Annotation: malK-I RNA: a 176-nucleotide RNA sequence. By type it is a cis-regulatory element.
[Rfam]
RNA sequence: UCUAUUGGCGGUCAGUCACUCCACAACAAUGGCUGUCCGUACAUAAGAAAAGGAGGAAAAACCGUUUGCUCACGGUGCGGCAGUGUGGAGACCUGUCGUAAUGCGGCGCACUCCAUCGCGGGUGGUCGCGAGACGGUAUUGGAGGAGUCCUUACCGCCAGAGCAAGGCAUAUGUCC
Numbered sequence: 001u002c003u004a005u006u007g008g009c010g011g012u013c014a015g016u017c018a019c020u021c022c023a024c025a026a027c028a029a030u031g032g033c034u035g036u037c038c039g040u041a042c043a044u045a046a047g048a049a050a051a052g053g054a055g056g057a058a059a060a061a062c063c064g065u066u067u068g069c070u071c072a073c074g075g076u077g078c079g080g081c082a083g084u085g086u087g088g089a090g091a092c093c094u095g096u097c098g099u100a101a102u103g104c105g106g107c108g109c110a111c112u113c114c115a116u117c118g119c120g121g122g123u124g125g126u127c128g129c130g131a132g133a134c135g136g137u138a139u140u141g142g143a144g145g146a147g148u149c150c151u152u153a154c155c156g157c158c159a160g161a162g163c164a165a166g167g168c169a170u171a172u173g174u175c176c
Base pairs, nucleotide, nucleotide: 008040009039010038011037013035014034015033016032017031018030062075063074064073065072066165067164068163069162070161071160076100077099078098079097080096081095082094083093085092086091103129104128105127106126107125109124110123111122132158134156135155136154137153138152141150142149143148
Dot-bracket structure: .......((((.((((((...........)))))).)))).....................[[[[((((((]]]]((((((((.((....))))))))))..(((((.(((..........))))))))..(.(((((..(((....))).))))).).))))))...........
The family's consensus secondary structure is taken from published work.